[Rfam]
RNA sequence: CGGCUGCCAUAACUCCGAGCUUCUUCAUCUAAGUCUCUGUUUAUUAUUAGUGAUAUGAUGAAAAAGCCAGUGGCAUGUUGUCACAAGGGCAUAAGUGGAAAUGCUUGUGCCUCCCGUAUUUGGAAAGGUGUUCCUUGGCGCAACAAU
Numbered sequence: 001c002g003g004c005u006g007c008c009a010u011a012a013c014u015c016c017g018a019g020c021u022u023c024u025u026c027a028u029c030u031a032a033g034u035c036u037c038u039g040u041u042u043a044u045u046a047u048u049a050g051u052g053a054u055a056u057g058a059u060g061a062a063a064a065a066g067c068c069a070g071u072g073g074c075a076u077g078u079u080g081u082c083a084c085a086a087g088g089g090c091a092u093a094a095g096u097g098g099a100a101a102u103g104c105u106u107g108u109g110c111c112u113c114c115c116g117u118a119u120u121u122g123g124a125a126a127g128g129u130g131u132u133c134c135u136u137g138g139c140g141c142a143a144c145a146a147u
Stems, first nucleotide, its partner, number of pairs: 003141002011132003015128002019067004024062006033054003070084005087112011113123002
Notes: Molybdenum/Tungsten riboswitch aptamer (Moco RNA motif): a 147-nucleotide sequence from Vibrio ziniensis. Its family is annotated with molybdenum ion binding, regulation of gene expression and tungstate binding in the Gene Ontology. It scores 101 bits against the family's covariance model. Pairs were carried over by alignment from the consensus structure, which is taken from published work.